[Rfam]
RNA: Small nucleolar RNA snoR104
RNA sequence: GGGGUGCAUCAGAAAACGAUGUUACUCGAUACAAACUUCCUACAAAAAGAAUCUGUAAUUUCCUGCUUGCUGAUCUGGAAGCAAGUUCUGCAAGUCUCAAAUUACCGAACAUUUCA
Number, nucleotide and partner (000 for none) at each position: 001g027002g026003g025004g000005u000006g022007c021008a020009u019010c018011a000012g000013a000014a000015a000016a000017c000018g010019a009020u008021g007022u006023u000024a000025c003026u002027c001028g000029a000030u000031a000032c000033a000034a000035a000036c000037u000038u000039c000040c000041u000042a000043c000044a000045a000046a000047a000048a000049g000050a000051a000052u109053c000054u107055g000056u000057a000058a000059u000060u000061u000062c000063c000064u000065g095066c094067u093068u092069g091070c090071u000072g088073a000074u000075c085076u084077g000078g000079a000080a000081g000082c000083a000084a076085g075086u000087u000088c072089u000090g070091c069092a068093a067094g066095u065096c000097u000098c000099a000100a000101a000102u000103u000104a000105c000106c000107g054108a000109a052110c000111a000112u000113u000114u000115c000116a000